[Rfam]
RNA sequence: AAUAAAGAUUGAGGAGCAGUAAUUAAGAGUAUCUAUAGUAGUUAGCCGCUAAAAAACUAUAGUGAAAGGAAUUAUUGCCGAAAUUGAGUAGUUGUGUGGCUCACAACCUCAGUUGGGUUUGUGCUGAACAAGUACAAGACUGUCACUAGUUAAUAUCUAGUGGUGAGCUAUCUUUCGU
Numbered sequence: 001a002a003u004a005a006a007g008a009u010u011g012a013g014g015a016g017c018a019g020u021a022a023u024u025a026a027g028a029g030u031a032u033c034u035a036u037a038g039u040a041g042u043u044a045g046c047c048g049c050u051a052a053a054a055a056a057c058u059a060u061a062g063u064g065a066a067a068g069g070a071a072u073u074a075u076u077g078c079c080g081a082a083a084u085u086g087a088g089u090a091g092u093u094g095u096g097u098g099g100c101u102c103a104c105a106a107c108c109u110c111a112g113u114u115g116g117g118u119u120u121g122u123g124c125u126g127a128a129c130a131a132g133u134a135c136a137a138g139a140c141u142g143u144c145a146c147u148a149g150u151u152a153a154u155a156u157c158u159a160g161u162g163g164u165g166a167g168c169u170a171u172c173u174u175u176c177g178u
Base pairs, nucleotide, nucleotide: 006173007172008171009170011168016078017077018076019075020074021073022072023071024070033062034061035060036059037058038057039056082114083113084112085111086110087109088108091107092106093105094104095103115141116140118138119137120136121135122134123133124132125131143163144162145161146160147159148158149157
This 178-nucleotide RNA sequence from Halanaerobacter jeridensis belongs to the Rfam family "Lysine riboswitch aptamer". Riboswitches are metabolite binding domains within certain messenger RNAs that serve as precision sensors for their corresponding targets.